[Rfam]
RNA sequence: CAGUAGUUCGCCUGUGUGAGCUGACAAACUUAGUAGUGUUUGUGAGGAUUAACAACAAUUAACACAGUGCGAGCUGUUUCUUAGCACGAAGAUCUCGAUGUCUAAGAAACCAGGAGGGCCCGGCAAGAGCCGGGCUGUCAAUAUGCUAAAAC
Number, nucleotide and partner (000 for none) at each position: 001c000002a000003g000004u000005a000006g074007u073008u072009c071010g070011c000012c067013u066014g065015u064016g063017u062018g000019a000020g000021c046022u045023g000024a043025c042026a041027a040028a000029c000030u000031u038032a037033g000034u000035a000036g000037u032038g031039u000040u027041u026042g025043u024044g000045a022046g021047g060048a059049u058050u057051a000052a000053c000054a000055a000056c000057a050058a049059u048060u047061a000062a017063c016064a015065c014066a013067g012068u000069g000070c010071g009072a008073g007074c006075u000076g110077u109078u108079u107080c106081u105082u104083a103084g102085c000086a000087c097088g096089a095090a000091g000092a000093u000094c000095u089096c088097g087098a000099u000100g000101u000102c084103u083104a082105a081106g080107a079108a078109a077110c076111c000112a000113g000114g139115a138116g000117g136118g135119c134120c133121c132122g131123g130124c000125a000126a000127g000128a000129g000130c123131c122132g121133g120134g119135c118136u117137g000138u115139c114140a000141a000142u000143a000144u000145g000146c000147u000148a000149a000150a000151a000152c000